[Rfam]
RNA sequence: CCAGCCAAGGGGCGCUGCGACGGGACUUCCCGCCAGGCUUGGCUUCAUCCAAUAACGGCGCUCACGUCUU
Numbered sequence: 001c002c003a004g005c006c007a008a009g010g011g012g013c014g015c016u017g018c019g020a021c022g023g024g025a026c027u028u029c030c031c032g033c034c035a036g037g038c039u040u041g042g043c044u045u046c047a048u049c050c051a052a053u054a055a056c057g058g059c060g061c062u063c064a065c066g067u068c069u070u
Base pairs, nucleotide, nucleotide: 003044004043005042006041007040008039021032022031023030024029
Shown here is a 70-nucleotide sequence from Formivibrio citricus, a member of the family "SAH (S-adenosyl-L-homocysteine) riboswitch aptamer". The source organism's lineage runs through Bacteria, Pseudomonadati, Betaproteobacteria, Neisseriales and Formivibrio.